[Rfam]
Nucleotides: 089
Base pairs, nucleotide, nucleotide: 001084005080006079007078011076013075014074015073016072021070022069024067025066026065027045028044029043030042031041032040033039048057049056050055
Number, partner (000 for none) and nucleotide at each position: 001084c002000a003000c004000c005080g006079g007078c008000a009000a010000g011076c012000g013075c014074a015073g016072g017000a018000a019000a020000g021070g022069u023000a024067g025066a026065g027045g028044c029043c030042g031041c032040u033039u034000c035000u036000u037000g038000c039033a040032a041031g042030u043029g044028g045027c046000a047000g048057c049056c050055c051000g052000a053000a054000u055050g056049g057048g058000u059000g060000g061000g062000a063000u064000c065026c066025u067024c068000g069022g070021u071000u072016c073015c074014u075013g076011g077000g078007g079006c080005c081000a082000u083000a084001g085000a086000u087000c088000a089000u